Annotation:
SAM riboswitch aptamer (S box leader): a 93-nucleotide RNA sequence from Gaiella occulta. The SAM riboswitch is found upstream of a number of genes which code for proteins involved in methionine or cysteine biosynthesis in Gram-positive bacteria. The SAM riboswitch acts at the level of transcription termination control. The organism belongs to Gaiella, within Bacteria. For this family Rfam cites "The plasticity of a structural motif in RNA: structural polymorphism of a kink turn as a function of its environment" (Daldrop and Lilley, RNA, 2013). Pairs were carried over by alignment from the consensus structure, which is taken from published work. Gene Ontology term of the family: regulation of gene expression.

RNA sequence: UUCACAUCGAGAGAGGCUGAGGGUCCCGGCCCUGCGACGCCUCGGCAACCUGCGCACCACGGCGCAAGGUGCCACACCCGGGGUGGAUGUCGA
Numbered sequence: 001u002u003c004a005c006a007u008c009g010a011g012a013g014a015g016g017c018u019g020a021g022g023g024u025c026c027c028g029g030c031c032c033u034g035c036g037a038c039g040c041c042u043c044g045g046c047a048a049c050c051u052g053c054g055c056a057c058c059a060c061g062g063c064g065c066a067a068g069g070u071g072c073c074a075c076a077c078c079c080g081g082g083g084u085g086g087a088u089g090u091c092g093a
Base pairs, nucleotide, nucleotide: 001093002092004090005089006088007087008086013043014042015041016040017039021032022031023030026081027080028079029078044073045072046071047070049069050068051066052065053064054063077085